[Rfam]
RNA sequence: GUCCCGAGCAUGACUAUAAACUUCUCACCGCCAGAUAUUACAUCAUUUGAUCACUGAUGGCUCAAUGGUAUCCGGCGGACAACCGAACAUCACAGCUGCCUUUUGAGCGGGUUGCUGCAAUCCGAAACGGAGAGAUUCGUUUGGACUGCGGUUGGUUUAUCACACCCAUUUUGCAGCUUUCAU
Numbered sequence: 001g002u003c004c005c006g007a008g009c010a011u012g013a014c015u016a017u018a019a020a021c022u023u024c025u026c027a028c029c030g031c032c033a034g035a036u037a038u039u040a041c042a043u044c045a046u047u048u049g050a051u052c053a054c055u056g057a058u059g060g061c062u063c064a065a066u067g068g069u070a071u072c073c074g075g076c077g078g079a080c081a082a083c084c085g086a087a088c089a090u091c092a093c094a095g096c097u098g099c100c101u102u103u104u105g106a107g108c109g110g111g112u113u114g115c116u117g118c119a120a121u122c123c124g125a126a127a128c129g130g131a132g133a134g135a136u137u138c139g140u141u142u143g144g145a146c147u148g149c150g151g152u153u154g155g156u157u158u159a160u161c162a163c164a165c166c167c168a169u170u171u172u173g174c175a176g177c178u179u180u181c182a183u
Stems, first nucleotide, its partner, number of pairs: 028078005034072007041059005060108006094178006114152005127140005
A member of the RNA family "DUF2800 RNA", 183 nucleotides long.
The family's consensus secondary structure is taken from published work.
Rfam classes the family as a cis-regulatory element.